MIR812 microRNA precursor family: a 203-nucleotide RNA sequence from Oryza meridionalis. A search with the family's covariance model found it, with a score of 117 bits. The base pairs follow the family's consensus structure, which was predicted with RNAalifold.
RNA sequence: UAUAAGCACAACCAUAAUUUUUUAUACCCAACUUUAAACAUCAUCUUAUUUAAAAUUUUUUUAAAAAAUUUUAAAACAUAAGUCACGAGUAAAGUAUUGUUUAUGUUUUAUCAUCUCAUAAUAAUAAAAAUACUAAUUAUAAAAAAAUUUCAAAUAAGACAAACGAUCAAAGUUGGGCAUGAAAACUCAUGGUUGCACUUAAA
Numbered sequence: 001u002a003u004a005a006g007c008a009c010a011a012c013c014a015u016a017a018u019u020u021u022u023u024a025u026a027c028c029c030a031a032c033u034u035u036a037a038a039c040a041u042c043a044u045c046u047u048a049u050u051u052a053a054a055a056u057u058u059u060u061u062u063a064a065a066a067a068a069u070u071u072u073a074a075a076a077c078a079u080a081a082g083u084c085a086c087g088a089g090u091a092a093a094g095u096a097u098u099g100u101u102u103a104u105g106u107u108u109u110a111u112c113a114u115c116u117c118a119u120a121a122u123a124a125u126a127a128a129a130a131u132a133c134u135a136a137u138u139a140u141a142a143a144a145a146a147a148u149u150u151c152a153a154a155u156a157a158g159a160c161a162a163a164c165g166a167u168c169a170a171a172g173u174u175g176g177g178c179a180u181g182a183a184a185a186c187u188c189a190u191g192g193u194u195g196c197a198c199u200u201a202a203a
Base pairs, nucleotide, nucleotide: 027177028176029175030174031173032172033171034170035169037167039165041163044159045158046157047156048155049154